[Rfam]
RNA sequence: AGUAACCCUAAGCUUAGUUUCCGGCAUUAGGCCGGAGAGCGGGGGAACCAGUUUUCUGGGGCGAAUCAUUCUACGCGAAUGUAGGGAACCAUCUAUCCCGAGUCCGUCAGCUAACCUCGUCAGCUUUGGAUGGGUCGGAU
Dot-bracket structure: ..........((((...((((((((.....))))))))((((((....((......))(((.....((((.......))))..((((........))))...))).........)))))).))))...............
Rfam assigns this 140-nucleotide RNA sequence from Cohnella herbarum to the family "c-di-AMP riboswitch aptamer (ydaO/yuaA leader)". The organism belongs to Cohnella, within Bacteria. Rfam links the family to the GO terms regulation of gene expression and cyclic-di-AMP binding. The family has 106 seed sequences and 7,607 matches in Rfam 15.1.